[Rfam]
RNA sequence: GGCUUCUCCGGCGGCGAUGAAACCUUGUCCCGUAUUCGGGCGCUUGGGACAGGUGGAGCCAGUAGCGCGACCGGCCGGAAGAUCC
Numbered sequence: 001g002g003c004u005u006c007u008c009c010g011g012c013g014g015c016g017a018u019g020a021a022a023c024c025u026u027g028u029c030c031c032g033u034a035u036u037c038g039g040g041c042g043c044u045u046g047g048g049a050c051a052g053g054u055g056g057a058g059c060c061a062g063u064a065g066c067g068c069g070a071c072c073g074g075c076c077g078g079a080a081g082a083u084c085c
Stems, first nucleotide, its partner, number of pairs: 001085002004082002007079005013060003022054004027050004038072002040068005